[Rfam]
RNA sequence: GGUAGUAGCAAAUAUUCAAAUGAGAACUUUGAAGACCGAAGUGGAGAAGGGUUCCGUGAGAACAGCAUUUGGUCACGGGUUACUCGAUCCUAAGACAUAGGGAAAUUCCUUGCACAAUACAAGGGCUAUUUAGCCUGUUGUCAAAAGGGAAUGAGGUUAAUAUUCCUCAAGCUGGUCGCGGAUUUUGUGUGGCAACACUAAUGAGCCCUGAGACGUCAGCAUGAACCCCUGGAAGAGUUCUCUUUUCUUUUUAACAGACUGUGGCCCUGAAUGGUUUACCCAGAGAAAGGGCUGUAUGUCUGGCAGAGCAGCAUACUCUAAGUGCUGUCAGGUGCGUUCAUGAUGGCCCUUGAAAAUCAGGGGGAGAGGUAAUAUCGCGCCAGAUCGUACCCAUAACCGCAUCAGGUCUCCAAGGUUAGUAGCCUCUGGUCGA
Numbered sequence: 001g002g003u004a005g006u007a008g009c010a011a012a013u014a015u016u017c018a019a020a021u022g023a024g025a026a027c028u029u030u031g032a033a034g035a036c037c038g039a040a041g042u043g044g045a046g047a048a049g050g051g052u053u054c055c056g057u058g059a060g061a062a063c064a065g066c067a068u069u070u071g072g073u074c075a076c077g078g079g080u081u082a083c084u085c086g087a088u089c090c091u092a093a094g095a096c097a098u099a100g101g102g103a104a105a106u107u108c109c110u111u112g113c114a115c116a117a118u119a120c121a122a123g124g125g126c127u128a129u130u131u132a133g134c135c136u137g138u139u140g141u142c143a144a145a146a147g148g149g150a151a152u153g154a155g156g157u158u159a160a161u162a163u164u165c166c167u168c169a170a171g172c173u174g175g176u177c178g179c180g181g182a183u184u185u186u187g188u189g190u191g192g193c194a195a196c197a198c199u200a201a202u203g204a205g206c207c208c209u210g211a212g213a214c215g216u217c218a219g220c221a222u223g224a225a226c227c228c229c230u231g232g233a234a235g236a237g238u239u240c241u242c243u244u245u246u247c248u249u250u251u252u253a254a255c256a257g258a259c260u261g262u263g264g265c266c267c268u269g270a271a272u273g274g275u276u277u278a279c280c281c282a283g284a285g286a287a288a289g290g291g292c293u294g295u296a297u298g299u300c301u302g303g304c305a306g307a308g309c310a311g312c313a314u315a316c317u318c319u320a321a322g323u324g325c326u327g328u329c330a331g332g333u334g335c336g337u338u339c340a341u342g343a344u345g346g347c348c349c350u351u352g353a354a355a356a357u358c359a360g361g362g363g364g365a366g367a368g369g370u371a372a373u374a375u376c377g378c379g380c381c382a383g384a385u386c387g388u389a390c391c392c393a394u395a396a397c398c399g400c401a402u403c404a405g406g407u408c409u410c411c412a413a414g415g416u417u418a419g420u421a422g423c424c425u426c427u428g429g430u431c432g433a
Base pairs, nucleotide, nucleotide: 015033016032017031018030019029020028034431035430036429037428043411044410045409046408049391050390054078055077056076057075058074059073063071064070085387086386087385089148090147094142095141096112097111100109101108102107121131152169153168154167155166156165172383173382174381175380177379178378179377180376181375182373183372189198190197191196206362207361208360209359210358211357215347216346217345218344220342221341222340223339224338225337226336228332229331230330231251232250233249234248235247236246255302256301257300258299259298264292265291266290267289268288272282273281274280309327310326311325312324313323314322397406398405413425414424415423416422
Rfam assigns this 433-nucleotide part of an RNA from Paramecium octaurelia to the family "Eukaryotic large subunit ribosomal RNA". A search with the family's covariance model found it, with a score of 3143 bits. Pairs were carried over by alignment from the consensus structure, which is taken from published work. Clan: LSU clan.